[Rfam]
RNA: Small nucleolar RNA SNORA53
RNA sequence: UACACACUUCCUUAGAUCCACUUCUAGAAUGCCGUUGACAUAUAGCAGCUGUCACAUGCGUGUGUCUGUCUGUCCAUGUGUCUCAAAGGCAUUCAACAGCUUUACCGCUGCAUAUUGGAAGUGCAUGAGUCAUGGGUGUGUGAGAUCAGUACACCUCUUGUUGAGCUCCUCAGGUCUUUGGCAUGCUGUCCGCUAAAGUUGUGCUCAGGUGCUUCUUUUGAGGAUGUGCUGUUUGUUGCUCUAGACUGGGCUUACCAAGGGACAAA
Numbered sequence: 001u002a003c004a005c006a007c008u009u010c011c012u013u014a015g016a017u018c019c020a021c022u023u024c025u026a027g028a029a030u031g032c033c034g035u036u037g038a039c040a041u042a043u044a045g046c047a048g049c050u051g052u053c054a055c056a057u058g059c060g061u062g063u064g065u066c067u068g069u070c071u072g073u074c075c076a077u078g079u080g081u082c083u084c085a086a087a088g089g090c091a092u093u094c095a096a097c098a099g100c101u102u103u104a105c106c107g108c109u110g111c112a113u114a115u116u117g118g119a120a121g122u123g124c125a126u127g128a129g130u131c132a133u134g135g136g137u138g139u140g141u142g143a144g145a146u147c148a149g150u151a152c153a154c155c156u157c158u159u160g161u162u163g164a165g166c167u168c169c170u171c172a173g174g175u176c177u178u179u180g181g182c183a184u185g186c187u188g189u190c191c192g193c194u195a196a197a198g199u200u201g202u203g204c205u206c207a208g209g210u211g212c213u214u215c216u217u218u219u220g221a222g223g224a225u226g227u228g229c230u231g232u233u234u235g236u237u238g239c240u241c242u243a244g245a246c247u248g249g250g251c252u253u254a255c256c257a258a259g260g261g262a263c264a265a266a
Stems, first nucleotide, its partner, number of pairs: 002141007011129004019123007027094005035086003040079004045075001046072003051066001054065004097110004155261005162254001164252004176244002